The family of this 74-nucleotide sequence from Ferruginibacter sp. is "tRNA".
By type it is a transfer RNA.
Transfer RNA (tRNA) molecules are approximately 80 nucleotides in length. Their secondary structure includes four short double-helical elements and three loops (D, anti-codon, and T loops). Further hydrogen bonds mediate the characteristic L-shaped molecular structure. tRNAs have two regions of fundamental functional importance: the anti-codon, which is responsible for specific mRNA codon recognition, and the 3' end, to which the tRNAs corresponding amino acid is attached (by aminoacyl-tRNA synthetases). tRNAs cope with the degeneracy of the genetic code in two manners: having more than one tRNA (with a specific anti-codon) for a particular amino acid; and 'wobble' base-pairing, i.e. permitting non-standard base-pairing at the 3rd anti-codon position.
RNA sequence: GUAGUCGUAGCUCAGUUGGUUAGAGCAUCAGAUUGUGAUUCUGAGGGUCGGGGGUUCGAGCCCCCUCGAUUACC
Numbered sequence: 001g002u003a004g005u006c007g008u009a010g011c012u013c014a015g016u017u018g019g020u021u022a023g024a025g026c027a028u029c030a031g032a033u034u035g036u037g038a039u040u041c042u043g044a045g046g047g048u049c050g051g052g053g054g055u056u057c058g059a060g061c062c063c064c065c066u067c068g069a070u071u072a073c074c
Stems, first nucleotide, its partner, number of pairs: 001073007010026004028044005050066005